[Rfam]
RNA: Plant signal recognition particle RNA
RNA sequence: GCCGAGCUUAGUUGCACGGGCUUGUGACCCAAGUGGGGGCAGCAAUGUGGUGGAACUUGGGUUUAGGUCUUGCGAGCCGGGCUUGUUGUGGCAAUAUUCUGGCCCGCCCAUUCCAAGCCGAGAGUUGAUCCAUGCGGUCCGAGCGAAGGCUUGGGCCUUGCGGGUCCUAGAGUGGAGGGGUCCACGUGAUGCUGGCUUCACAGAGUAGCGAAAACCUCCCGCUCCCGAUAGUGGGAGGAUAAUGGGCCGGUGCCACUCGGGCCCAUCAUGACCUAAUGGGCUGAGCCUACCGAACCACCACUUUU
Numbered sequence: 001g002c003c004g005a006g007c008u009u010a011g012u013u014g015c016a017c018g019g020g021c022u023u024g025u026g027a028c029c030c031a032a033g034u035g036g037g038g039g040c041a042g043c044a045a046u047g048u049g050g051u052g053g054a055a056c057u058u059g060g061g062u063u064u065a066g067g068u069c070u071u072g073c074g075a076g077c078c079g080g081g082c083u084u085g086u087u088g089u090g091g092c093a094a095u096a097u098u099c100u101g102g103c104c105c106g107c108c109c110a111u112u113c114c115a116a117g118c119c120g121a122g123a124g125u126u127g128a129u130c131c132a133u134g135c136g137g138u139c140c141g142a143g144c145g146a147a148g149g150c151u152u153g154g155g156c157c158u159u160g161c162g163g164g165u166c167c168u169a170g171a172g173u174g175g176a177g178g179g180g181u182c183c184a185c186g187u188g189a190u191g192c193u194g195g196c197u198u199c200a201c202a203g204a205g206u207a208g209c210g211a212a213a214a215c216c217u218c219c220c221g222c223u224c225c226c227g228a229u230a231g232u233g234g235g236a237g238g239a240u241a242a243u244g245g246g247c248c249g250g251u252g253c254c255a256c257u258c259g260g261g262c263c264c265a266u267c268a269u270g271a272c273c274u275a276a277u278g279g280g281c282u283g284a285g286c287c288u289a290c291c292g293a294a295c296c297a298c299c300a301c302u303u304u305u
Stems, first nucleotide, its partner, number of pairs: 001040003004023006028037003044304002047301007056292001058289003062285005069279002074274001076272001078270001079264007088256004094251001099250008108238002111236005117229001119227002122224004127166005133160002136157009167172001174219005185210003192203003